Overview:
Rfam assigns this 76-nucleotide RNA sequence from Roseibium aggregatum to the family "Makes More Granules Regulator RNA (mmgR)". Rfam 15.1 lists 1,791 matches to the family in 918 species. The family is grouped with related families in Rfam's "suhB sRNA clan". SuhB later renamed mmgR (makes more granules regulator) was a putative non-coding RNA found multiple times in the Agrobacterium tumefaciens genome and related alpha-proteobacteria. Other non-coding RNAs uncovered in the same analysis include: speF, ybhL, metA, and serC.Several studies inSinorhizobium meliloti showed that suhB element is indeed a non-coding RNA:firstly it was detected on Northern blot and called Sm8RNA, secondly in an RNAseq study referred to as SmelC689.The mutant phenotype's (strain lacking the small RNA) cytoplasm contains higher content of polyhydroxybutyrate (PBH)storage granules than wild type strain. The sRNA is required to limit the PBH intracellular accumulation when the nitrogen-fixing Sinorhizobium meliloti is under condition of surplus carbon in relation to nitrogen. It has been renamed to mmgR. Further study confirmed that mmgR fine-tunes the regulation of PBH storage.Northern blot confirmed the expression of the sRNA in other rhizobia species. The sequence is in the family's curated seed alignment. For this family Rfam cites "Evidence for a second class of S-adenosylmethionine riboswitches and other regulatory RNA motifs in alpha-proteobacteria" (Corbino et al., Genome Biol, 2005). The organism belongs to Roseibium aggregatum, within Bacteria.

[Rfam]
RNA sequence: UCGUACCGCCCUCCUUGGGCGUUUCCUCCCUAGACUCGGGCCGCCUCUUUUGAGAGCGGCCUUUUUUUUGUCCUGA
Dot-bracket structure: .......((((.....))))..................(((((((((....))).))))))...............